[Rfam]
RNA sequence: GGGCCGUUAGCUCAGGUGGCAGAGCACCGGACUUUUAAUCCGGGUGUCGCAGGUUCGAAUCCUGCACGGCUCA
Numbered sequence: 001g002g003g004c005c006g007u008u009a010g011c012u013c014a015g016g017u018g019g020c021a022g023a024g025c026a027c028c029g030g031a032c033u034u035u036u037a038a039u040c041c042g043g044g045u046g047u048c049g050c051a052g053g054u055u056c057g058a059a060u061c062c063u064g065c066a067c068g069g070c071u072c073a
Stems, first nucleotide, its partner, number of pairs: 001072007010025004027043005049065005